[Rfam]
RNA sequence: GUUUUAUCUAUGAUAGUGUUCUUUUUAAACCUUUUUGGAGAAAGAACGCUUGAUGUUGCUUGUAAAAU
Numbered sequence: 001g002u003u004u005u006a007u008c009u010a011u012g013a014u015a016g017u018g019u020u021c022u023u024u025u026u027a028a029a030c031c032u033u034u035u036u037g038g039a040g041a042a043a044g045a046a047c048g049c050u051u052g053a054u055g056u057u058g059c060u061u062g063u064a065a066a067a068u
Stems, first nucleotide, its partner, number of pairs: 001068005015050010030040001032038001
Shown here is a 68-nucleotide sequence from Phascolarctos cinereus, a member of the family "Selenocysteine insertion sequence 1". Gene Ontology term of the family: selenocysteine incorporation. Rfam classes the family as a cis-regulatory element.